[Rfam]
RNA sequence: CGACUAGGUUACCUAUCGUAACAGUUGGUGAGACUAGUAUUAAAUGGAGGUGUUAGGACAUGAGGCAGUGGUAAUCGUCUUGGUUCUAGUGUCUCGAGGUAAUUAGCAGGUACUAAGUGGUACCUGCUAAUUACUAUAUGUUUGGUAGAAUAAGAUAG
Dot-bracket structure: .......(((((.....)))))..(((.(............)..)))........(((...((((((..(..((((.....)))).)..))))))..(((((((((((((((((....))))))))))))))))).....)))...............
Numbered sequence: 001c002g003a004c005u006a007g008g009u010u011a012c013c014u015a016u017c018g019u020a021a022c023a024g025u026u027g028g029u030g031a032g033a034c035u036a037g038u039a040u041u042a043a044a045u046g047g048a049g050g051u052g053u054u055a056g057g058a059c060a061u062g063a064g065g066c067a068g069u070g071g072u073a074a075u076c077g078u079c080u081u082g083g084u085u086c087u088a089g090u091g092u093c094u095c096g097a098g099g100u101a102a103u104u105a106g107c108a109g110g111u112a113c114u115a116a117g118u119g120g121u122a123c124c125u126g127c128u129a130a131u132u133a134c135u136a137u138a139u140g141u142u143u144g145g146u147a148g149a150a151u152a153a154g155a156u157a158g
Stems, first nucleotide, its partner, number of pairs: 008022005025047003029042001056143003062095006070087001073085004098135017

A member of the RNA family "Streptococcus sRNA sagA" from Streptococcus dysgalactiae, 158 nucleotides long.
Taxonomically the source falls in Streptococcus dysgalactiae (Bacteria, Bacillati, Lactobacillales, Streptococcus).